[Rfam]
RNA: Small nucleolar RNA R12
Organism: Trifolium subterraneum
RNA sequence: UGUAGAAUGAUGAAAAAUUUGACGGAUUACAAUUGAUAUUAAUAUAUGAUAUUAUAAUCAGCUACUUCUGACUACA
Numbered sequence: 001u002g003u004a005g006a007a008u009g010a011u012g013a014a015a016a017a018u019u020u021g022a023c024g025g026a027u028u029a030c031a032a033u034u035g036a037u038a039u040u041a042a043u044a045u046a047u048g049a050u051a052u053u054a055u056a057a058u059c060a061g062c063u064a065c066u067u068c069u070g071a072c073u074a075c076a
Stems, first nucleotide, its partner, number of pairs: 001076005